[Rfam]
RNA: Small nucleolar RNA Z103
RNA sequence: GGCGAGAUGAUGAGCCUUUCCCCAGGUGAUCGACUAUGAACACACUGUGCGCUAUUGUCUUCUCCUUUGCAGAGAAGAUCAAGCCAGGACUCUGAUCUCC
Numbered sequence: 001g002g003c004g005a006g007a008u009g010a011u012g013a014g015c016c017u018u019u020c021c022c023c024a025g026g027u028g029a030u031c032g033a034c035u036a037u038g039a040a041c042a043c044a045c046u047g048u049g050c051g052c053u054a055u056u057g058u059c060u061u062c063u064c065c066u067u068u069g070c071a072g073a074g075a076a077g078a079u080c081a082a083g084c085c086a087g088g089a090c091u092c093u094g095a096u097c098u099c100c
Base pairs, nucleotide, nucleotide: 001100002099004097005096